[Rfam]
RNA sequence: CAGCAUCUUUCUAAGGCUUAUGGCUGGUAGUAGAUGUGGGAUGGGAUCUCCAACUGUAUGCAAGAAUAACCUGGAGAGCCUUGGACAGCACAGGUCAGAAUAAUACUUGUAGCUGCCACUCAUCUUUCCUAUAUUA
Numbered sequence: 001c002a003g004c005a006u007c008u009u010u011c012u013a014a015g016g017c018u019u020a021u022g023g024c025u026g027g028u029a030g031u032a033g034a035u036g037u038g039g040g041a042u043g044g045g046a047u048c049u050c051c052a053a054c055u056g057u058a059u060g061c062a063a064g065a066a067u068a069a070c071c072u073g074g075a076g077a078g079c080c081u082u083g084g085a086c087a088g089c090a091c092a093g094g095u096c097a098g099a100a101u102a103a104u105a106c107u108u109g110u111a112g113c114u115g116c117c118a119c120u121c122a123u124c125u126u127u128c129c130u131a132u133a134u135u136a
Base pairs, nucleotide, nucleotide: 011044012043017039018033019032020031021030073129074128075127076126077125078124088116089115091109092108093107094106
A member of the RNA family "Small nucleolar RNA SNORA44" from Erinaceus europaeus, 136 nucleotides long.
Lineage of the source: Eukaryota > Gnathostomata > Euteleostomi > Erinaceidae > Erinaceus.
For this family Rfam cites "RNomics: an experimental approach that identifies 201 candidates for novel, small, non-messenger RNAs in mouse" (Huttenhofer et al., EMBO J, 2001).
By type it is an H/ACA-box small nucleolar RNA.
About the family: ACA44 is a member of the H/ACA class of snoRNA that guide the sites of modification of uridines to pseudouridines.